[Rfam]
RNA sequence: AGUGUAACUCAGGGCAGGGUGAAAUUCCCUACCGGCGGUAUACCCCGCGAGCCUAUGGCAUGAUUCGGUGUGAUUCCGAAGGCGACAGUAGAGUCUGGAUGAAAGAGUCUUUUA
Numbered sequence: 001a002g003u004g005u006a007a008c009u010c011a012g013g014g015c016a017g018g019g020u021g022a023a024a025u026u027c028c029c030u031a032c033c034g035g036c037g038g039u040a041u042a043c044c045c046c047g048c049g050a051g052c053c054u055a056u057g058g059c060a061u062g063a064u065u066c067g068g069u070g071u072g073a074u075u076c077c078g079a080a081g082g083c084g085a086c087a088g089u090a091g092a093g094u095c096u097g098g099a100u101g102a103a104a105g106a107g108u109c110u111u112u113u114a
Stems, first nucleotide, its partner, number of pairs: 004111001007108004017029003031094002033084002035048004043082002053058001064080005086097003
Dot-bracket structure: ...(..((((......(((.......))).[[((((((....[[))))....(....).....(((((.......)))))]])).(((....]]))).......))))..)...
About this RNA:
Rfam assigns this 114-nucleotide sequence from Bulleidia extructa to the family "FMN riboswitch aptamer (RFN element)". Rfam 15.1 lists 6,230 matches to the family in 5,120 species. The organism belongs to Bulleidia extructa, within Bacteria. The family's consensus secondary structure is taken from published work. The match comes from Rfam's covariance-model search (100 bits).